[Rfam]
RNA sequence: CGCUCCGUCUUUGGGGAGUAGCUGGUCUCUAAGUUUUCAACUUGGUGAUUCACACAUCAACAUAUUUGGUACUCAAUUACCAUGGUGUGUGAGACCUGAGCCUUCAGGUUU
Numbered sequence: 001c002g003c004u005c006c007g008u009c010u011u012u013g014g015g016g017a018g019u020a021g022c023u024g025g026u027c028u029c030u031a032a033g034u035u036u037u038c039a040a041c042u043u044g045g046u047g048a049u050u051c052a053c054a055c056a057u058c059a060a061c062a063u064a065u066u067u068g069g070u071a072c073u074c075a076a077u078u079a080c081c082a083u084g085g086u087g088u089g090u091g092a093g094a095c096c097u098g099a100g101c102c103u104u105c106a107g108g109u110u111u
Stems, first nucleotide, its partner, number of pairs: 026048002050092010067082005093110007

A member of the RNA family "Manganese Mn2+ riboswitch aptamer (yybP-ykoY)" from Vibrio cholerae, 111 nucleotides long. This RNA was originally discovered in E. coli during a large scale screen and was named SraF. The family was later found to exist upstream of related families of protein genes in many bacteria, including the the yybP and ykoK genes in B. subtilis. Gene Ontology term of the family: manganese ion binding.